This 100-nucleotide RNA sequence from Sporobacter termitidis belongs to the Rfam family "c-di-GMP-I riboswitch aptamer".
Taxonomically the source falls in Sporobacter termitidis (Bacteria, Bacillati, Clostridia, Oscillospiraceae).
Nucleotides: 100
Base pairs, nucleotide, nucleotide: 012037013036017032018031019030020029021028022027040094041093042092043091046090047089048086049085050084055080056079057078058077
Number, partner (000 for none) and nucleotide at each position: 001000a002000a003000u004000c005000g006000a007000u008000a009000a010000u011000g012037g013036c014000a015000a016000a017032c018031u019030u020029a021028u022027u023000g024000a025000a026000a027022a028021a029020u030019a031018a032017g033000g034000a035000c036013g037012c038000a039000a040094a041093g042092c043091c044000a045000a046090g047089g048086g049085u050084c051000u052000a053000a054000g055080g056079u057078c058077g059000g060000c061000g062000c063000g064000g065000c066000a067000c068000a069000c070000a071000c072000g073000c074000c075000c076000c077058c078057g079056a080055c081000g082000a083000u084050g085049a086048c087000a088000g089047c090046c091043g092042g093041u094040u095000g096000c097000c098000g099000a100000a